RNA sequence: UUUCAUGAUGAACCCCAAUUCAUAAGCAUAGUUCAACUGAAGGUCUCCGGAUCCUGAACGACAACCUAUCCAUCUUUCACUUUUUCUGAAA
Dot-bracket structure: .....(..((.....)))............(((((......((((....)))).)))))................................
Numbered sequence: 001u002u003u004c005a006u007g008a009u010g011a012a013c014c015c016c017a018a019u020u021c022a023u024a025a026g027c028a029u030a031g032u033u034c035a036a037c038u039g040a041a042g043g044u045c046u047c048c049g050g051a052u053c054c055u056g057a058a059c060g061a062c063a064a065c066c067u068a069u070c071c072a073u074c075u076u077u078c079a080c081u082u083u084u085u086c087u088g089a090a091a
Stems, first nucleotide, its partner, number of pairs: 006018001009017002031059005042053004